Notes: The family of this 194-nucleotide sequence from Sphingobium sp. TKS is "Manganese Mn2+ riboswitch aptamer (yybP-ykoY)". About the family: This RNA was originally discovered in E. coli during a large scale screen and was named SraF. The family was later found to exist upstream of related families of protein genes in many bacteria, including the the yybP and ykoK genes in B. subtilis. The specific functions of these proteins are unknown, but this structured RNA element may be involved in their genetic regulation as a riboswitch. Its family is annotated with manganese ion binding in the Gene Ontology. Taxonomically the source falls in Sphingobium (Bacteria, Pseudomonadati, Alphaproteobacteria, Sphingomonadales).
[Rfam]
RNA sequence: CCGUGCGUCAUCUGGGGAGUAGCCAGCCGUUCCGCAUAAGGAGCGGGCCGUUCGUCAACAUAUUUGGCCGAGAGGUCAUGGCGGGCGGGACGCGAGGGAUGCAAAUCUUUCGCAUCGGGCGAGACCAAUGGCAUCGCCUUCCCCAUCCGGCCGGGUGGGGGGAGGUGGUGACAUUGUGUCCUUCAUCCUUCGCC
Numbered sequence: 001c002c003g004u005g006c007g008u009c010a011u012c013u014g015g016g017g018a019g020u021a022g023c024c025a026g027c028c029g030u031u032c033c034g035c036a037u038a039a040g041g042a043g044c045g046g047g048c049c050g051u052u053c054g055u056c057a058a059c060a061u062a063u064u065u066g067g068c069c070g071a072g073a074g075g076u077c078a079u080g081g082c083g084g085g086c087g088g089g090a091c092g093c094g095a096g097g098g099a100u101g102c103a104a105a106u107c108u109u110u111c112g113c114a115u116c117g118g119g120c121g122a123g124a125c126c127a128a129u130g131g132c133a134u135c136g137c138c139u140u141c142c143c144c145a146u147c148c149g150g151c152c153g154g155g156u157g158g159g160g161g162g163a164g165g166u167g168g169u170g171a172c173a174u175u176g177u178g179u180c181c182u183u184c185a186u187c188c189u190u191c192g193c194c
Stems, first nucleotide, its partner, number of pairs: 027046003048088010065078005092193010